SAM riboswitch aptamer (S box leader): a 104-nucleotide RNA from Bacillus sp. THAF10. Rfam's curators write: The SAM riboswitch is found upstream of a number of genes which code for proteins involved in methionine or cysteine biosynthesis in Gram-positive bacteria. The SAM riboswitch acts at the level of transcription termination control. The predicted structure consists of a complex stem-loop region followed by a single stem loop terminator region. The literature on the family includes a 2003 paper in Proc Natl Acad Sci U S A by Epshtein et al., "The riboswitch-mediated control of sulfur metabolism in bacteria". NCBI's taxonomy places the organism under Bacteria, Bacillati, Caryophanales, Bacillaceae, Bacillus. A search with the family's covariance model found it, with a score of 98 bits. Gene Ontology term of the family: regulation of gene expression.

[Rfam]
Nucleotides: 104
Base pairs, nucleotide, nucleotide: 001104002103003102004101005100006099007098008097013042014041015040016039017038021031022030023029025078027076028075043070044069045068046067048066049065051062052061053060054059074096079093080092081091082090083089084088
Number, partner (000 for none) and nucleotide at each position: 001104u002103u003102c004101u005100u006099a007098u008097c009000c010000a011000g012000a013042g014041a015040g016039g017038u018000g019000g020000a021031g022030g023029g024000a025078a026000c027076g028075g029023c030022c031021c032000u033000g034000u035000g036000a037000a038017a039016c040015c041014u042013c043070g044069g045068c046067a047000a048066c049065a050000g051062g052061c053060u054059u055000g056000c057000a058000u059054a060053a061052g062051c063000a064000c065049u066048g067046u068045g069044c070043c071000a072000a073000u074096u075028c076027c077000a078025u079093c080092a081091a082090g083089c084088g085000a086000u087000u088084c089083g090082c091081u092080u093079g094000a095000a096074a097008g098007a099006u100005a101004a102003g103002a104001a